[Rfam]
RNA sequence: AUCGCUUCUUGGCCUUUUGGCUAAGAUCAAGCGUAGUCUAUCUGUUCUUGUCAGUUUAAUAUCUGAUACAUCUUCUAUCCGAGGACAACAUAUUAAAUGGAUAUUUGGAGCCGGGAGCUGGAAUAGGAGCUUGCUCCGUCCACUCCGCACAUCGACCUGGUAUUGCAGUGCUGUGACAUGAGAAUUCCAU
Number, nucleotide and partner (000 for none) at each position: 001a000002u000003c000004g000005c000006u000007u026008c025009u024010u000011g022012g021013c020014c019015u000016u000017u000018u000019g014020g013021c012022u011023a000024a009025g008026a007027u000028c000029a000030a000031g000032c000033g000034u000035a000036g000037u000038c000039u000040a000041u000042c000043u000044g000045u000046u000047c000048u000049u068050g067051u066052c065053a064054g063055u000056u000057u000058a000059a000060u000061a000062u000063c054064u053065g052066a051067u050068a049069c000070a000071u085072c084073u083074u082075c081076u000077a000078u000079c000080c000081g075082a074083g073084g072085a071086c000087a000088a000089c000090a000091u000092a000093u000094u000095a000096a000097a000098u000099g000100g000101a000102u000103a000104u000105u000106u000107g000108g000109a000110g000111c000112c000113g000114g146115g145116a144117g143118c000119u000120g140121g139122a000123a000124u000125a000126g137127g136128a135129g134130c000131u000132u000133g000134c129135u128136c127137c126138g000139u121140c120141c000142a000143c117144u116145c115146c114147g000148c000149a000150c182151a000152u180153c000154g000155a000156c175157c000158u173159g172160g171161u170162a000163u000164u000165g000166c000167a000168g000169u000170g161171c160172u159173g158174u000175g156176a000177c000178a000179u000180g152181a000182g150183a000184a000185u000186u000187c000188c000189a000190u000
RNA: U2 spliceosomal RNA